RNA sequence: UCGACUGUACUUGCACAGGAUCACUGCUACAGUGAUUCCUCUUGCAUACAUGUCAUAAAACAGAGCUUCACAGCAUCUCUGAUGAUGUCGACUUUCUGCACUGAUAAGGAAUUUCCUGGAGCUUGCUCCCAGCCUGAAGAAAGCCAUCAGCGCAGUCUUCUGAAGGGAU
Numbered sequence: 001u002c003g004a005c006u007g008u009a010c011u012u013g014c015a016c017a018g019g020a021u022c023a024c025u026g027c028u029a030c031a032g033u034g035a036u037u038c039c040u041c042u043u044g045c046a047u048a049c050a051u052g053u054c055a056u057a058a059a060a061c062a063g064a065g066c067u068u069c070a071c072a073g074c075a076u077c078u079c080u081g082a083u084g085a086u087g088u089c090g091a092c093u094u095u096c097u098g099c100a101c102u103g104a105u106a107a108g109g110a111a112u113u114u115c116c117u118g119g120a121g122c123u124u125g126c127u128c129c130c131a132g133c134c135u136g137a138a139g140a141a142a143g144c145c146a147u148c149a150g151c152g153c154a155g156u157c158u159u160c161u162g163a164a165g166g167g168a169u
Stems, first nucleotide, its partner, number of pairs: 003039001006035001008034004017028002020025001046068001050067001053064002076168005096155004101150005107117004121144004126139001
Rfam assigns this 169-nucleotide RNA from Polarella glacialis to the family "ACEA small nucleolar RNA U3". By type it is a C/D-box small nucleolar RNA. It scores 58 bits against the family's covariance model. Taxonomically the source falls in Polarella (Eukaryota, Dinophyceae, Suessiales, Suessiaceae). Rfam describes the family as follows. Small nucleolar RNAs (snoRNAs) are involved in the processing and modification of rRNA in the nucleolus. There are two main classes of snoRNAs: the box C/D class, and the box H/ACA class. U3 snoRNA is a member of the box C/D class. Indeed, the box C/D element is a subset of the six short sequence elements found in all U3 snoRNAs, namely boxes A, A', B, C, C', and D. The U3 snoRNA secondary structure is characterised by a small 5' domain (with boxes A and A'), and a larger 3' domain (with boxes B, C, C', and D), the two domains being linked by a single-stranded hinge. Boxes B and C form the B/C motif, which appears to be exclusive to U3 snoRNAs, and boxes C' and D form the C'/D motif. The latter is functionally similar to the C/D motifs found in other snoRNAs. The 5' domain and the hinge region act as a pre-rRNA-binding domain. The 3' domain has conserved protein-binding sites. Both the box B/C and box C'/D motifs are sufficient for nuclear retention of U3 snoRNA. The box C'/D motif is also necessary for nucleolar localisation, stability and hyper-methylation of U3 snoRNA. Both box B/C and C'/D motifs are involved in specific protein interactions and are necessary for the rRNA processing functions of U3 snoRNA. Gene Ontology terms of the family: RNA processing and nucleolus.